Overview: Rfam assigns this 97-nucleotide RNA sequence from Vagococcus allomyrinae to the family "Purine riboswitch aptamer". Rfam links the family to the GO term purine nucleobase biosynthetic process.
RNA sequence: CUUUUUGAAAAAUUACAAGCUUGUAUAUGAUCAUAAUUGGUUGAUCGUCUCUACCUGGUGCCGUAAAUACCAGACUAUAAGCAGAAAUAGGCAUAUU
Numbered sequence: 001c002u003u004u005u006u007g008a009a010a011a012a013u014u015a016c017a018a019g020c021u022u023g024u025a026u027a028u029g030a031u032c033a034u035a036a037u038u039g040g041u042u043g044a045u046c047g048u049c050u051c052u053a054c055c056u057g058g059u060g061c062c063g064u065a066a067a068u069a070c071c072a073g074a075c076u077a078u079a080a081g082c083a084g085a086a087a088u089a090g091g092c093a094u095a096u097u
Stems, first nucleotide, its partner, number of pairs: 019082007029046005055073006